[Rfam]
RNA sequence: CGACGUCCGGAGCCGGACCGAGGCGGACCGGGGACCCACCGAUCCACUGGGGUGAGUCCCGCCUGCGCUCCGGGCGCAGGCGGGUAGGGCGCCGUCCGGCCCGAACCCGUCAGCUAACUCGGUAGGCGGUCGCGAGGAUGGGA
Numbered sequence: 001c002g003a004c005g006u007c008c009g010g011a012g013c014c015g016g017a018c019c020g021a022g023g024c025g026g027a028c029c030g031g032g033g034a035c036c037c038a039c040c041g042a043u044c045c046a047c048u049g050g051g052g053u054g055a056g057u058c059c060c061g062c063c064u065g066c067g068c069u070c071c072g073g074g075c076g077c078a079g080g081c082g083g084g085u086a087g088g089g090c091g092c093c094g095u096c097c098g099g100c101c102c103g104a105a106c107c108c109g110u111c112a113g114c115u116a117a118c119u120c121g122g123u124a125g126g127c128g129g130u131c132g133c134g135a136g137g138a139u140g141g142g143a
Base pairs, nucleotide, nucleotide: 012127013126014125018026019025020024027123028122029121030120031119032118037049038048050108051107052106058084059083060082061081062080063079064078065077066076067075068074069073087102088101089100090099
About this RNA: Shown here is a 143-nucleotide sequence from Geodermatophilus sp. TF02-6, a member of the family "c-di-AMP riboswitch aptamer (ydaO/yuaA leader)". It scores 59 bits against the family's covariance model.